[Rfam]
RNA sequence: UGGAGGAUUGAGAAGGUAAGAUAGUUAAACUUUAUGCUAUAUCUUACUGGCUAUGGCCUCCAAUAUUAUAAGUGCAAUAGCAACUCAUGUUCCCCUUAUGACAUGAGGGAAAGCAGUACUGCAUUUG
Numbered sequence: 001u002g003g004a005g006g007a008u009u010g011a012g013a014a015g016g017u018a019a020g021a022u023a024g025u026u027a028a029a030c031u032u033u034a035u036g037c038u039a040u041a042u043c044u045u046a047c048u049g050g051c052u053a054u055g056g057c058c059u060c061c062a063a064u065a066u067u068a069u070a071a072g073u074g075c076a077a078u079a080g081c082a083a084c085u086c087a088u089g090u091u092c093c094c095c096u097u098a099u100g101a102c103a104u105g106a107g108g109g110a111a112a113g114c115a116g117u118a119c120u121g122c123a124u125u126u127g
Stems, first nucleotide, its partner, number of pairs: 002061005015048004019042001021040005079120002083117003091111001093109003097106001

The family of this 127-nucleotide RNA from Alaudala cheleensis is "Small nucleolar RNA SNORA47".
Rfam 15.1 lists 733 matches to the family in 635 species.
Taxonomically the source falls in Alaudala (Eukaryota, Metazoa, Australaves, Passeriformes).